[Rfam]
RNA sequence: AACGUGCUCCGGGGUCGGUGAAAGUCCGAACCGGCGGUGACAGUCCGCGAGCGGGACUGCGUGCGAACGCAGCCUGCUGAUCCGGUGGAAUUCCGGGACCGACGGUAAUGGGGUCAGGCGUGAGCCUGGCCGCUCAGUCCGGAUGGGAGGCAGCACGGC
Numbered sequence: 001a002a003c004g005u006g007c008u009c010c011g012g013g014g015u016c017g018g019u020g021a022a023a024g025u026c027c028g029a030a031c032c033g034g035c036g037g038u039g040a041c042a043g044u045c046c047g048c049g050a051g052c053g054g055g056a057c058u059g060c061g062u063g064c065g066a067a068c069g070c071a072g073c074c075u076g077c078u079g080a081u082c083c084g085g086u087g088g089a090a091u092u093c094c095g096g097g098a099c100c101g102a103c104g105g106u107a108a109u110g111g112g113g114u115c116a117g118g119c120g121u122g123a124g125c126c127u128g129g130c131c132g133c134u135c136a137g138u139c140c141g142g143a144u145g146g147g148a149g150g151c152a153g154c155a156c157g158g159c
Stems, first nucleotide, its partner, number of pairs: 003157006009150002016028003032101002034048004043099002051077005081097005103141003

FMN riboswitch aptamer (RFN element): a 159-nucleotide sequence from Leifsonia poae.
It scores 77 bits against the family's covariance model.
Lineage of the source: Bacteria > Actinomycetota > Actinomycetes > Micrococcales > Leifsonia.